[Rfam]
RNA sequence: ACUCAACGCUAAUUUCUUUAAAAAGGGUGAGUUUAGGUUGUAAAAGCGCGCCGCUUUUUAAGCGGAUUCUUGAGCAAUCUGUUAGCCCUAAACCUGUUUAUUACGAGUUU
Numbered sequence: 001a002c003u004c005a006a007c008g009c010u011a012a013u014u015u016c017u018u019u020a021a022a023a024a025g026g027g028u029g030a031g032u033u034u035a036g037g038u039u040g041u042a043a044a045a046g047c048g049c050g051c052c053g054c055u056u057u058u059u060a061a062g063c064g065g066a067u068u069c070u071u072g073a074g075c076a077a078u079c080u081g082u083u084a085g086c087c088c089u090a091a092a093c094c095u096g097u098u099u100a101u102u103a104c105g106a107g108u109u110u
Stems, first nucleotide, its partner, number of pairs: 024089005035080005044071003051065004
RNA: 6S-Flavo RNA